[Rfam]
RNA sequence: GGCACAGUAGAUGCUAGGCCCUGUUCAUCGGUAACCAACGGCGGUCAUCGGCACGUGACAAAGGCGUCGC
Numbered sequence: 001g002g003c004a005c006a007g008u009a010g011a012u013g014c015u016a017g018g019c020c021c022u023g024u025u026c027a028u029c030g031g032u033a034a035c036c037a038a039c040g041g042c043g044g045u046c047a048u049c050g051g052c053a054c055g056u057g058a059c060a061a062a063g064g065c066g067u068c069g070c
Stems, first nucleotide, its partner, number of pairs: 030049003034045003
Dot-bracket structure: .............................(((.(((......))).))).....................
RNA: narK RNA